Description: The family of this 72-nucleotide RNA from Alligator mississippiensis is "Mammalian CPEB3 ribozyme". The match comes from Rfam's covariance-model search (41 bits). Lineage of the source: Eukaryota > Vertebrata > Euteleostomi > Sauropsida > Alligator.
RNA sequence: ACAGAUUUGAGGCCAUAGCAGAAGUGCUCAUGGCACCACCUAUCAGAUUCCAACAAAUCUGCAAAUUCUGCU
Number, nucleotide and partner (000 for none) at each position: 001a000002c000003a000004g000005a000006u000007u000008u000009g000010a000011g040012g039013c000014c000015a000016u000017a072018g071019c070020a069021g068022a067023a066024g036025u035026g034027c000028u000029c000030a000031u000032g000033g000034c026035a025036c024037c000038a000039c012040c011041u000042a000043u000044c061045a060046g059047a058048u057049u056050c000051c000052a000053a000054c000055a000056a049057a048058u047059c046060u045061g044062c000063a000064a000065a000066u023067u022068c021069u020070g019071c018072u017

Pairs were carried over by alignment from the consensus structure, which is taken from published work.